[Rfam]
RNA sequence: ACCCUCCGGUUCCCUUUCCCAUCGGAUCUGAACACUGGUCUUGGUGGUCGUAAAAGGAGGAAAAAGAAUACUGAAACUAGCCUCCCAGUGCUUAUCGUCUGGUAUAUAACUUGGAGGCUAGUUUCAAACAAGA
Numbered sequence: 001a002c003c004c005u006c007c008g009g010u011u012c013c014c015u016u017u018c019c020c021a022u023c024g025g026a027u028c029u030g031a032a033c034a035c036u037g038g039u040c041u042u043g044g045u046g047g048u049c050g051u052a053a054a055a056g057g058a059g060g061a062a063a064a065a066g067a068a069u070a071c072u073g074a075a076a077c078u079a080g081c082c083u084c085c086c087a088g089u090g091c092u093u094a095u096c097g098u099c100u101g102g103u104a105u106a107u108a109a110c111u112u113g114g115a116g117g118c119u120a121g122u123u124u125c126a127a128a129c130a131a132g133a
Base pairs, nucleotide, nucleotide: 003060004059005058006057007056019047020046021045022044023043025040026039027038028037077121078120079119080118081117082116083115095109
About this RNA: The family of this 133-nucleotide RNA sequence from Lynx canadensis is "Small nucleolar RNA SNORA61". The source organism's lineage runs through Eukaryota, Bilateria, Chordata, Amniota and Lynx. The match comes from Rfam's covariance-model search (136 bits). Rfam classes the family as an H/ACA-box small nucleolar RNA. ACA61 is a member of the H/ACA class of snoRNA that guide the sites of modification of uridines to pseudouridines. Gene Ontology terms of the family: nucleolus and RNA processing. Pairs were carried over by alignment from the consensus structure, which was predicted with PFOLD.